[Rfam]
RNA sequence: UUAUCAGAGAGUGUGGCCCCUAGGCCAUGCUCCCGGCAGCAAGCGAAGGUGUCAUUGGCACCCGUGGCACGUCAUCUGGCCUGCCACGUCAAUUUUUU
Numbered sequence: 001u002u003a004u005c006a007g008a009g010a011g012u013g014u015g016g017c018c019c020c021u022a023g024g025c026c027a028u029g030c031u032c033c034c035g036g037c038a039g040c041a042a043g044c045g046a047a048g049g050u051g052u053c054a055u056u057g058g059c060a061c062c063c064g065u066g067g068c069a070c071g072u073c074a075u076c077u078g079g080c081c082u083g084c085c086a087c088g089u090c091a092a093u094u095u096u097u098u
Stems, first nucleotide, its partner, number of pairs: 009032010036044002048062006063088007071080003
Translational regulator of tfoXVC: a 98-nucleotide RNA sequence from Plesiomonas shigelloides.
The base pairs follow the family's consensus structure, which was predicted with WAR.